[Rfam]
RNA sequence: GGGCUGUGAUGACUGAUAACAUUUCUCGAUGCUGAAGAGUGGUUGCUUUAUAUAGAUGGACCAAAGCAAAUGUUUUUGAAGACUGCGUUUGUGCGUGUCUGAGCCCC
Numbered sequence: 001g002g003g004c005u006g007u008g009a010u011g012a013c014u015g016a017u018a019a020c021a022u023u024u025c026u027c028g029a030u031g032c033u034g035a036a037g038a039g040u041g042g043u044u045g046c047u048u049u050a051u052a053u054a055g056a057u058g059g060a061c062c063a064a065a066g067c068a069a070a071u072g073u074u075u076u077u078g079a080a081g082a083c084u085g086c087g088u089u090u091g092u093g094c095g096u097g098u099c100u101g102a103g104c105c106c107c
Stems, first nucleotide, its partner, number of pairs: 001106004
This 107-nucleotide RNA sequence from Turnera subulata belongs to the Rfam family "small nucleolar RNA snoR126". Rfam classes the family as a C/D-box small nucleolar RNA. For this family Rfam cites "Mining small RNA sequencing data: a new approach to identify small nucleolar RNAs in Arabidopsis" (Chen and Wu, Nucleic Acids Res, 2009). It scores 71 bits against the family's covariance model. The source organism's lineage runs through Eukaryota, Euphyllophyta, Magnoliopsida, Pentapetalae and Turnera.